[Rfam]
RNA sequence: CUGAGACAGGUGGGCCCGCGGCAGAGUGCGACCGAUAAACUGUUCUCGGACGUCGCCGGGUGCAGCUCCCCGUGCCGUCCACCAAUGAUCAGCCAGCAGCCGCUGCAACCCCAGGGAG
Numbered sequence: 001c002u003g004a005g006a007c008a009g010g011u012g013g014g015c016c017c018g019c020g021g022c023a024g025a026g027u028g029c030g031a032c033c034g035a036u037a038a039a040c041u042g043u044u045c046u047c048g049g050a051c052g053u054c055g056c057c058g059g060g061u062g063c064a065g066c067u068c069c070c071c072g073u074g075c076c077g078u079c080c081a082c083c084a085a086u087g088a089u090c091a092g093c094c095a096g097c098a099g100c101c102g103c104u105g106c107a108a109c110c111c112c113a114g115g116g117a118g
Base pairs, nucleotide, nucleotide: 048080049079050078051077052076056072058070059069060068094105095104096103097102
RNA: Streptomyces-metK RNA